[Rfam]
RNA sequence: GAAUAAAUUAAUAUAUUUACCUGUAUAUGUUUGAUAAUAUGGUUCAAAUGUUUCUACUAAGCUACCAUUAAUAGCUUGACUACAGGAGUGAAGAAGAUAUAG
Numbered sequence: 001g002a003a004u005a006a007a008u009u010a011a012u013a014u015a016u017u018u019a020c021c022u023g024u025a026u027a028u029g030u031u032u033g034a035u036a037a038u039a040u041g042g043u044u045c046a047a048a049u050g051u052u053u054c055u056a057c058u059a060a061g062c063u064a065c066c067a068u069u070a071a072u073a074g075c076u077u078g079a080c081u082a083c084a085g086g087a088g089u090g091a092a093g094a095a096g097a098u099a100u101a102g
Stems, first nucleotide, its partner, number of pairs: 018088001020086006029049006058078007